[Rfam]
RNA sequence: GCCGGAAGUGACAGUGCAGACGCUGGCAACACAGACGGUCCCGCUGUACACCGACCUGCCGGGCCGCACCGCUGCCUAUCGCGUUGCCGAAGUGCGUCCGCAGGUGAGCGGCAUCGUACUGAAGCGCCUGUUUACCGAAGGCAGCGAAGUCCAGGCCGGACAGCAGCUGUACCAGAUUGA
Numbered sequence: 001g002c003c004g005g006a007a008g009u010g011a012c013a014g015u016g017c018a019g020a021c022g023c024u025g026g027c028a029a030c031a032c033a034g035a036c037g038g039u040c041c042c043g044c045u046g047u048a049c050a051c052c053g054a055c056c057u058g059c060c061g062g063g064c065c066g067c068a069c070c071g072c073u074g075c076c077u078a079u080c081g082c083g084u085u086g087c088c089g090a091a092g093u094g095c096g097u098c099c100g101c102a103g104g105u106g107a108g109c110g111g112c113a114u115c116g117u118a119c120u121g122a123a124g125c126g127c128c129u130g131u132u133u134a135c136c137g138a139a140g141g142c143a144g145c146g147a148a149g150u151c152c153a154g155g156c157c158g159g160a161c162a163g164c165a166g167c168u169g170u171a172c173c174a175g176a177u178u179g180a
Stems, first nucleotide, its partner, number of pairs: 003061003007057001008052001009050002011047004019040002021037002062157004066150002070146001072144004077140001079138002085102003089098001103128002106125001109121003113117001164179002167175002

Shown here is a 180-nucleotide RNA from Insolitispirillum peregrinum, a member of the family "Burkholderia RNA 14". It scores 66 bits against the family's covariance model. Rfam 15.1 lists 98 matches to the family in 91 species. On this family, see Ramos et al., Genomics 2013: "Experimental identification of small non-coding regulatory RNAs in the opportunistic human pathogen Burkholderia cenocepacia J2315". The organism belongs to Insolitispirillum, within Bacteria. It is annotated as a small RNA. Rfam describes the family as follows. Co-purified with Hfq, expression confirmed by Northern blot. Putative functional homologue of PA-SraF. Overlaps coding sequence. Its family is annotated with protein binding in the Gene Ontology. Pairs were carried over by alignment from the consensus structure, which was predicted with RNAfold.